RNA sequence: ACCCUGGGGUGGAAAGUUGUACCGCUGAUGGUGAUUUUUCUACACAUAAGCGUAUAGCUUUUCCCCUUUGGUU
Numbered sequence: 001a002c003c004c005u006g007g008g009g010u011g012g013a014a015a016g017u018u019g020u021a022c023c024g025c026u027g028a029u030g031g032u033g034a035u036u037u038u039u040c041u042a043c044a045c046a047u048a049a050g051c052g053u054a055u056a057g058c059u060u061u062u063c064c065c066c067u068u069u070g071g072u073u
Stems, first nucleotide, its partner, number of pairs: 003071002006068002009065001011063001013061002017057005025050002028047003
The family of this 73-nucleotide RNA from Tribolium castaneum is "mir-965 microRNA precursor family".
Pairs were carried over by alignment from the consensus structure, which was predicted with RNAalifold.
The sequence is in the family's curated seed alignment.
On this family, see Huang et al., Bioorg Khim 2012: "The regulation of silkworm fibroin L chain production by miRNA-965 and miRNA-1926 in insect cells".